About this RNA
A member of the RNA family "Fluoride riboswitch aptamer (crcB RNA motif)" from Mobilitalea sibirica, 73 nucleotides long.

RNA sequence: GUAUAAAAUGGGAAUGAGGAUCUCCCUUGGUACGCCUAAACUGCUAAAUUUAGCUGAUGACUUCUGUGUAUUA
Numbered sequence: 001g002u003a004u005a006a007a008a009u010g011g012g013a014a015u016g017a018g019g020a021u022c023u024c025c026c027u028u029g030g031u032a033c034g035c036c037u038a039a040a041c042u043g044c045u046a047a048a049u050u051u052a053g054c055u056g057a058u059g060a061c062u063u064c065u066g067u068g069u070a071u072u073a
Base pairs, nucleotide, nucleotide: 010026011025012024013023016064017063018062019061021059043054044053045052046051
A search with the family's covariance model found it, with a score of 41 bits.